[Rfam]
RNA sequence: GGUACCUUUAACUCGGUCCAGAGAGGCUGAAAAGGAUAGUUGAUGAACAUAUAAAAUGCUCAUAUUUGUAUGCAUUGAUAUUUUAUGUAUAUAAACCUUUGGCCUCUGGCAGAAGGUUUUUUUAUU
Dot-bracket structure: ....(((((...((((((......))))))))))).............((((((((((.(.(............).).))))))))))..(.((((((((.(((...))).)))))))).).....